[Rfam]
RNA sequence: CCUGACGCCGAGCCAAACAAACAAUACCUGUUGUAAAAGUUUUGUUCGUUCGGCUCGCGUUACGC
Dot-bracket structure: (.(.(((.((((((...(..((((.((...........)).))))..)...))))))))).).).
Numbered sequence: 001c002c003u004g005a006c007g008c009c010g011a012g013c014c015a016a017a018c019a020a021a022c023a024a025u026a027c028c029u030g031u032u033g034u035a036a037a038a039g040u041u042u043u044g045u046u047c048g049u050u051c052g053g054c055u056c057g058c059g060u061u062a063c064g065c
Stems, first nucleotide, its partner, number of pairs: 001064001003062001005060003009057006018048001021045004026040002
This 65-nucleotide RNA from Chiloscyllium punctatum belongs to the Rfam family "mir-375 microRNA precursor family". Gene Ontology terms of the family: RISC complex and miRNA-mediated post-transcriptional gene silencing. On this family, see Chen et al., Genes Dev 2005: "The developmental miRNA profiles of zebrafish as determined by small RNA cloning". Rfam 15.1 lists 824 matches to the family in 730 species.